[Rfam]
RNA sequence: CACCGCCCGUCGCUACUUCCGAUUGAAGUGGCUGAGUGAGGUUAUUGGACUGUCGUUAAACGCAAAUUUUGCUAAAAAAAUGGACAGGAAGAUGCCCCGAACUUGGUCAUUUAGAGGAAGUAAAAGUCGUAACAAGGUUUCCGUAGUGAACCUGCGGAAGGAUCAUUA
Dot-bracket structure: ..(.(..((.(..(((((((..(.(((.(((((((((..((.((((...(((((.((....(((.....))).....))...)))))...)))).))...)))))))))))))..)))))))...).))...)..).(((((((((.....)))))))))........
Numbered sequence: 001c002a003c004c005g006c007c008c009g010u011c012g013c014u015a016c017u018u019c020c021g022a023u024u025g026a027a028g029u030g031g032c033u034g035a036g037u038g039a040g041g042u043u044a045u046u047g048g049a050c051u052g053u054c055g056u057u058a059a060a061c062g063c064a065a066a067u068u069u070u071g072c073u074a075a076a077a078a079a080a081u082g083g084a085c086a087g088g089a090a091g092a093u094g095c096c097c098c099g100a101a102c103u104u105g106g107u108c109a110u111u112u113a114g115a116g117g118a119a120g121u122a123a124a125a126g127u128c129g130u131a132a133c134a135a136g137g138u139u140u141c142c143g144u145a146g147u148g149a150a151c152c153u154g155c156g157g158a159a160g161g162a163u164c165a166u167u168a
Stems, first nucleotide, its partner, number of pairs: 003136001005133001008129002011126001014122007023113001025112003029109009040097002043094004050087005056079002062072003138160009